[Rfam]
Nucleotides: 066
Stems, first nucleotide, its partner, number of pairs: 041056006
Number, partner (000 for none) and nucleotide at each position: 001000g002000u003000g004000u005000u006000u007000u008000u009000c010000a011000u012000a013000g014000u015000a016000u017000u018000a019000g020000a021000u022000u023000u024000a025000a026000g027000g028000u029000u030000a031000a032000c033000a034000a035000a036000g037000g038000u039000u040000u041056g042055g043054a044053c045052u046051c047000g048000g049000c050000g051046g052045a053044g054043u055042c056041c057000u058000u059000u060000u061000u062000u063000u064000a065000u066000g

Bacteroidetes FopS (family of paralogous sRNAs): a 66-nucleotide RNA sequence from Prevotella sp. S7 MS 2.
Pairs were carried over by alignment from the consensus structure, which is taken from published work.
On this family, see Ruttiger et al., Nat Commun 2025: "The global RNA-binding protein RbpB is a regulator of polysaccharide utilization in Bacteroides thetaiotaomicron".
The source organism's lineage runs through Bacteria, Bacteroidota, Bacteroidia, Prevotellaceae and Prevotella.
The match comes from Rfam's covariance-model search (73 bits).
About the family: The RNA-binding protein RbpB and BTncRNA_FopS sRNA are involved in the post-transcription regulation of polysaccharide utilisation loci (PUL).